[Rfam]
PreQ1-III (pre queuosine) riboswitch aptamer: a 102-nucleotide RNA sequence. On this family, see McCown et al., Chem Biol 2014: "Structural, functional, and taxonomic diversity of three preQ1 riboswitch classes". Rfam's curators put it in the seed alignment. Rfam links the family to the GO term queuosine biosynthetic process.
RNA sequence: GAGCAACUUAGGAUUUUAGGCUCCCCGGCGUGUCUCGAACCAUGCCGGGCCAAACCCACGGGGGCUGGCGGUCCCCGCGUGGUCAAAAUCAAACCGCUGGAG
Number, nucleotide and partner (000 for none) at each position: 001g023002a022003g021004c020005a000006a000007c000008u000009u000010a000011g000012g090013a089014u088015u087016u086017u000018a000019g000020g004021c003022u002023c001024c049025c048026c047027g046028g045029c044030g043031u042032g041033u000034c000035u000036c000037g000038a000039a000040c000041c032042a031043u030044g029045c028046c027047g026048g025049g024050c000051c000052a000053a000054a083055c082056c081057c079058a000059c077060g076061g075062g074063g073064g072065c000066u000067g000068g000069c000070g000071g000072u064073c063074c062075c061076c060077g059078c000079g057080u000081g056082g055083u054084c000085a000086a016087a015088a014089u013090c012091a000092a000093a000094c000095c000096g000097c000098u000099g000100g000101a000102g000